This 122-nucleotide RNA sequence from Chelativorans petroleitrophicus belongs to the Rfam family "Rhizobiales sRNA Atu_C8".
RNA sequence: CGCCAUGAUGAAGAUCAUUCUCGUAGUACGAACGCACAUGGGCAAGGCGGCGUAGCCGCCGGGCGACAGCCGCUCAUGUGCGAAAACAGGGCUCCUUCGGGGGCCUUUUUUAAUGGCCGAAC
Numbered sequence: 001c002g003c004c005a006u007g008a009u010g011a012a013g014a015u016c017a018u019u020c021u022c023g024u025a026g027u028a029c030g031a032a033c034g035c036a037c038a039u040g041g042g043c044a045a046g047g048c049g050g051c052g053u054a055g056c057c058g059c060c061g062g063g064c065g066a067c068a069g070c071c072g073c074u075c076a077u078g079u080g081c082g083a084a085a086a087c088a089g090g091g092c093u094c095c096u097u098c099g100g101g102g103g104c105c106u107u108u109u110u111u112a113a114u115g116g117c118c119g120a121a122c
Stems, first nucleotide, its partner, number of pairs: 009026001030117001033082010046060005063070002089106007

Rfam classes the family as a small RNA. A reference for the family is Wilms et al. (2012), "Deep sequencing uncovers numerous small RNAs on all four replicons of the plant pathogen Agrobacterium tumefaciens", RNA Biol. The family's consensus secondary structure was predicted with CMfinder.